RNA: mir-73 microRNA precursor family
RNA sequence: UGAGCUUCCACAUCAGACCACAGCUAUUCACAAAAAAAAUGCUGGCAAGAUGUAGGCAGUUCAGU
Numbered sequence: 001u002g003a004g005c006u007u008c009c010a011c012a013u014c015a016g017a018c019c020a021c022a023g024c025u026a027u028u029c030a031c032a033a034a035a036a037a038a039a040u041g042c043u044g045g046c047a048a049g050a051u052g053u054a055g056g057c058a059g060u061u062c063a064g065u
Stems, first nucleotide, its partner, number of pairs: 001063006008056002010053005018045002022043003